[Rfam]
RNA sequence: GGUGUGUCACCUUGCAGACAAGCCCCUAUCAGUAUUGCCUCUGCUUUCACUAGAGUUAACAGAGUAGUGCAAUAUUGCUUAUAGGGUCUUGGCUUUGAGGGAUG
Dot-bracket structure: ...................(((.(((((((((((((((..(((((................).)))).)))))))))...)))))).)))..............
The record is a 104-nucleotide RNA from Oreochromis niloticus, which matches "mir-454 microRNA precursor family" in Rfam. It scores 74 bits against the family's covariance model. For this family Rfam cites "Deep sequencing of the small RNA transcriptome of normal and malignant human B cells identifies hundreds of novel microRNAs" (Jima et al., Blood, 2010). Pairs were carried over by alignment from the consensus structure, which was predicted with RNAalifold. Rfam links the family to the GO terms RISC complex and miRNA-mediated post-transcriptional gene silencing. The source organism's lineage runs through Eukaryota, Vertebrata, Teleostei, Euacanthomorphacea and Oreochromis.